[Rfam]
RNA sequence: AACAGAAAAAGGCAAACCAUUUGAAAGGAUGGGACGCAAAGUCACGGGUCUAAGGAAUCACUCAUUCUACGACAGCCGGAUUGCCUGG
Numbered sequence: 001a002a003c004a005g006a007a008a009a010a011g012g013c014a015a016a017c018c019a020u021u022u023g024a025a026a027g028g029a030u031g032g033g034a035c036g037c038a039a040a041g042u043c044a045c046g047g048g049u050c051u052a053a054g055g056a057a058u059c060a061c062u063c064a065u066u067c068u069a070c071g072a073c074a075g076c077c078g079g080a081u082u083g084c085c086u087g088g
Stems, first nucleotide, its partner, number of pairs: 012037002017032006040082004045078003048073003055067004
Shown here is an 88-nucleotide RNA sequence from Mesobacillus campisalis, a member of the family "c-di-GMP-I riboswitch aptamer". Lineage of the source: Bacteria > Bacilli > Caryophanales > Bacillaceae > Mesobacillus.